[Rfam]
RNA sequence: GAUUACUGGUCGACAGAAGUGCAUCGGCAGGAGUGGAGGACCCAGGCAGUACGGAACAGCCGGAGCGAUCGAUCCGGGGGUUCCUCGGGGUGAAGCCGCGUCAGCGGCCGGGCACCUUCGUCCGCCCGAACCCGACAGGUCAUCCUUCACAGGCGGCUGACGAAGGGUUG
Numbered sequence: 001g002a003u004u005a006c007u008g009g010u011c012g013a014c015a016g017a018a019g020u021g022c023a024u025c026g027g028c029a030g031g032a033g034u035g036g037a038g039g040a041c042c043c044a045g046g047c048a049g050u051a052c053g054g055a056a057c058a059g060c061c062g063g064a065g066c067g068a069u070c071g072a073u074c075c076g077g078g079g080g081u082u083c084c085u086c087g088g089g090g091u092g093a094a095g096c097c098g099c100g101u102c103a104g105c106g107g108c109c110g111g112g113c114a115c116c117u118u119c120g121u122c123c124g125c126c127c128g129a130a131c132c133c134g135a136c137a138g139g140u141c142a143u144c145c146u147u148c149a150c151a152g153g154c155g156g157c158u159g160a161c162g163a164a165g166g167g168u169u170g
Stems, first nucleotide, its partner, number of pairs: 004032001006030003033150006043087001088133003096107004110127004
Description: The record is a 170-nucleotide sequence from Streptomyces qinzhouensis, which matches "c-di-AMP riboswitch aptamer (ydaO/yuaA leader)" in Rfam. It scores 42 bits against the family's covariance model. A reference for the family is Barrick et al. (2004), "New RNA motifs suggest an expanded scope for riboswitches in bacterial genetic control", Proc Natl Acad Sci U S A.